[Rfam]
RNA sequence: AUAAUUUUUUCGCUUAAUCUUAUUUUAAGAGCGGGGGACCCAAAUGAAUUAUAUGGAUUUUCCCUUUAUGGUGAAAUUCCGUUAUAGGUGAAUUCUGAAAAGAAGGGGCUUAUGUUUCCGGAGUCCUAACCUGAAAGCUAACCUCGUAAGCGUUUGCAAGGAAACAG
Numbered sequence: 001a002u003a004a005u006u007u008u009u010u011c012g013c014u015u016a017a018u019c020u021u022a023u024u025u026u027a028a029g030a031g032c033g034g035g036g037g038a039c040c041c042a043a044a045u046g047a048a049u050u051a052u053a054u055g056g057a058u059u060u061u062c063c064c065u066u067u068a069u070g071g072u073g074a075a076a077u078u079c080c081g082u083u084a085u086a087g088g089u090g091a092a093u094u095c096u097g098a099a100a101a102g103a104a105g106g107g108g109c110u111u112a113u114g115u116u117u118c119c120g121g122a123g124u125c126c127u128a129a130c131c132u133g134a135a136a137g138c139u140a141a142c143c144u145c146g147u148a149a150g151c152g153u154u155u156g157c158a159a160g161g162a163a164a165c166a167g
Stems, first nucleotide, its partner, number of pairs: 011152004018030003031147006086132003094103003106126006
Dot-bracket structure: ..........((((...(((.......)))((((((.................................................(((.....(((....)))..((((((.........))))))...))).........)))))).))))...............
RNA: c-di-AMP riboswitch aptamer (ydaO/yuaA leader)